[Rfam]
RNA sequence: AGCAAAAUGAUGAGAUUUAGAUGACUGAAUCUGAUGUUGAAUUCUAUGUCAUACUGUGUCUUCAAAGUUCUCUGAUCGCU
Numbered sequence: 001a002g003c004a005a006a007a008u009g010a011u012g013a014g015a016u017u018u019a020g021a022u023g024a025c026u027g028a029a030u031c032u033g034a035u036g037u038u039g040a041a042u043u044c045u046a047u048g049u050c051a052u053a054c055u056g057u058g059u060c061u062u063c064a065a066a067g068u069u070c071u072c073u074g075a076u077c078g079c080u
Stems, first nucleotide, its partner, number of pairs: 001080003005076001
RNA: Small nucleolar RNA R160
Organism: Salix brachista